The family of this 303-nucleotide RNA from Centaurea solstitialis is "Plant signal recognition particle RNA". The match comes from Rfam's covariance-model search (229 bits). Its family is annotated with signal recognition particle, endoplasmic reticulum targeting and SRP-dependent cotranslational protein targeting to membrane, signal sequence recognition in the Gene Ontology. By type it is a non-coding RNA gene.
[Rfam]
RNA sequence: GCCGGGCUUGGUAACGUGAGCCUGUGACUCGAGUGAGGGCAUUAAGAUGGUUGGACUGUGAUUGAGCCCAGAUUGGUUGGGUUUGGUGGUUGCAAAAUCUGGCCUGCCCGUUCCAAGUUUGGAGUUGGACCAUGUGGUUUAGGCGAAGGCCUGGCUCUGUGGUUCCUAAAGUAGAGGGCAAAGCGUUAGGCUGGCUUCACAGAGCUGCGAAAACCUCUCGCUCCAAACAGUGGAAGGAUUACGGGCCGGUGCUCCCUUGGCCCAAAUAAUCAGCUGGGCUCCUUCUAAUGAACACCCACUUUU
Numbered sequence: 001g002c003c004g005g006g007c008u009u010g011g012u013a014a015c016g017u018g019a020g021c022c023u024g025u026g027a028c029u030c031g032a033g034u035g036a037g038g039g040c041a042u043u044a045a046g047a048u049g050g051u052u053g054g055a056c057u058g059u060g061a062u063u064g065a066g067c068c069c070a071g072a073u074u075g076g077u078u079g080g081g082u083u084u085g086g087u088g089g090u091u092g093c094a095a096a097a098u099c100u101g102g103c104c105u106g107c108c109c110g111u112u113c114c115a116a117g118u119u120u121g122g123a124g125u126u127g128g129a130c131c132a133u134g135u136g137g138u139u140u141a142g143g144c145g146a147a148g149g150c151c152u153g154g155c156u157c158u159g160u161g162g163u164u165c166c167u168a169a170a171g172u173a174g175a176g177g178g179c180a181a182a183g184c185g186u187u188a189g190g191c192u193g194g195c196u197u198c199a200c201a202g203a204g205c206u207g208c209g210a211a212a213a214c215c216u217c218u219c220g221c222u223c224c225a226a227a228c229a230g231u232g233g234a235a236g237g238a239u240u241a242c243g244g245g246c247c248g249g250u251g252c253u254c255c256c257u258u259g260g261c262c263c264a265a266a267u268a269a270u271c272a273g274c275u276g277g278g279c280u281c282c283u284u285c286u287a288a289u290g291a292a293c294a295c296c297c298a299c300u301u302u303u
Base pairs, nucleotide, nucleotide: 001040002039003038004023005022006021007020008019009018010017028037029036030035044302045301046300048298049297050296052294053293056290059287060286064281065280066279067278069277071275073273074272075271076270077269078268079263080262081261082260083259085257086256088255092252095250099249100248101247102246103245104244105243106242108237109236111235112234113233114232115231117228118227119226120225121224122223123222124221125220127165128164129163130162131161132160133159134158136156137155139154140153141152142151143150144149166171173218174217175216176215177214184209185208186207191202192201193200